mir-252 microRNA precursor family: an 89-nucleotide RNA from Nasonia vitripennis. The sequence is in the family's curated seed alignment. Rfam 15.1 lists 422 matches to the family in 306 species. Lineage of the source: Eukaryota > Hexapoda > Endopterygota > Proctotrupomorpha > Nasonia. Its Rfam clan is "mir-252 microRNA precursor family". A reference for the family is Li et al. (2009), "Direct sequencing and expression analysis of a large number of miRNAs in Aedes aegypti and a multi-species survey of novel mosquito miRNAs", BMC Genomics.

RNA sequence: UCCUGUUCCUAAGUACUAGUGCCGCAGGAGUGACUAGAUUGGGCUAGAAAUUACCGCGUCUCCUGCUGCUCAAGUGCUUAUCAAUGGUU
Numbered sequence: 001u002c003c004u005g006u007u008c009c010u011a012a013g014u015a016c017u018a019g020u021g022c023c024g025c026a027g028g029a030g031u032g033a034c035u036a037g038a039u040u041g042g043g044c045u046a047g048a049a050a051u052u053a054c055c056g057c058g059u060c061u062c063c064u065g066c067u068g069c070u071c072a073a074g075u076g077c078u079u080a081u082c083a084a085u086g087g088u089u
Stems, first nucleotide, its partner, number of pairs: 003087005010080008019071001024066007